Nucleotides: 111
Base pairs, nucleotide, nucleotide: 005035006034007033008032009031010030011029012028013027040070041069042068043067044066045065046064047063048062078106079105080104081103082102083101084100085099086098
Number, partner (000 for none) and nucleotide at each position: 001000c002000g003000u004000c005035a006034u007033c008032g009031g010030a011029c012028u013027u014000a015000c016000u017000c018000c019000u020000c021000c022000u023000c024000c025000c026000a027013a028012a029011g030010u031009c032008c033007g034006a035005u036000a037000c038000u039000g040070g041069a042068a043067u044066g045065c046064g047063g048062c049000a050000c051000u052000c053000c054000u055000c056000c057000u058000c059000c060000c061000a062048g063047c064046c065045g066044c067043g068042u069041u070040c071000a072000a073000a074000g075000a076000u077000u078106g079105g080104g081103c082102c083101g084100c085099g086098c087000a088000u089000c090000c091000u092000c093000c094000u095000c096000c097000c098086g099085c100084g101083c102082g103081g104080c105079c106078u107000u108000u109000u110000u111000u